[Rfam]
RNA sequence: GCCUUCGGUGGCCUGGCCGCUCCCUACCAAGGGGCGACGACAGCAGAAGGAAGAACCAACCCGACCCCACCCGCCUCCCCGCGAAGGCGCUGGUCACCCGCGAGGGUGAAUAUGCCAACUGAGCGGUCUUUUGGGUGGGUUGUCUGAUCUACGCUCGGCCUGACCGAACUCCAGACACACAUGAGUCGGCCCCCGGCGGGACUUGCACUCCCGGCGAGGGCCUGACCAAUCGAGGAAGCCAGAAACCUUCCUG
Numbered sequence: 001g002c003c004u005u006c007g008g009u010g011g012c013c014u015g016g017c018c019g020c021u022c023c024c025u026a027c028c029a030a031g032g033g034g035c036g037a038c039g040a041c042a043g044c045a046g047a048a049g050g051a052a053g054a055a056c057c058a059a060c061c062c063g064a065c066c067c068c069a070c071c072c073g074c075c076u077c078c079c080c081g082c083g084a085a086g087g088c089g090c091u092g093g094u095c096a097c098c099c100g101c102g103a104g105g106g107u108g109a110a111u112a113u114g115c116c117a118a119c120u121g122a123g124c125g126g127u128c129u130u131u132u133g134g135g136u137g138g139g140u141u142g143u144c145u146g147a148u149c150u151a152c153g154c155u156c157g158g159c160c161u162g163a164c165c166g167a168a169c170u171c172c173a174g175a176c177a178c179a180c181a182u183g184a185g186u187c188g189g190c191c192c193c194c195g196g197c198g199g200g201a202c203u204u205g206c207a208c209u210c211c212c213g214g215c216g217a218g219g220g221c222c223u224g225a226c227c228a229a230u231c232g233a234g235g236a237a238g239c240c241a242g243a244a245a246c247c248u249u250c251c252u253g
Base pairs, nucleotide, nucleotide: 007231008230009229010227016082017081019079094109095108096107097106098105099104123159124158126156188222189221190220191219192218194216195215198212199211200210201209234251235250236249237248238247
Dot-bracket structure: ......((((.....((.(...........................................................).))...........((((((....)))))).............((.(.............................).))............................(((((.((..((((.......))))..)).)))))....).)))..(((((........)))))..

Rfam assigns this 253-nucleotide sequence from Streptomyces termitum to the family "Streptomyces sRNA 4677".
Rfam describes the family as follows. Located in the intergenic region between anti-sigma factor SCO4677 gene and a putative regulatory protein gene SCO4676. scr4677 expression requires the SCO4677 activity and scr4677 sRNA itself seem to affect the levels of the SCO4676-associated transcripts.
A search with the family's covariance model found it, with a score of 95 bits.
The family's RNA type in Rfam is small RNA.
The source organism's lineage runs through Bacteria, Actinomycetota, Actinomycetes, Kitasatosporales and Streptomyces.
The base pairs follow the family's consensus structure.
The family has 12 seed sequences and 563 matches in Rfam 15.1.